[Rfam]
RNA: ZMP/ZTP riboswitch aptamer (pfl RNA motif)
Organism: Microbacterium mangrovi
RNA sequence: UCGUCGUGUCGCGACUGGCGUUGAGGUGGCUUACCACCGGGGAGCGACCGACACGGCAUUCGACCGCACGCCUGGGCCGAAGCG
Number, nucleotide and partner (000 for none) at each position: 001u000002c000003g052004u051005c050006g000007u000008g048009u047010c046011g045012c044013g000014a000015c041016u040017g072018g071019c070020g069021u068022u000023g000024a000025g000026g037027u036028g035029g034030c000031u000032u000033a000034c029035c028036a027037c026038c000039g000040g016041g015042g000043a000044g012045c011046g010047a009048c008049c000050g005051a004052c003053a000054c000055g000056g000057c000058a000059u000060u000061c079062g078063a000064c076065c075066g000067c000068a021069c020070g019071c018072c017073u000074g000075g065076g064077c000078c062079g061080a000081a000082g000083c000084g000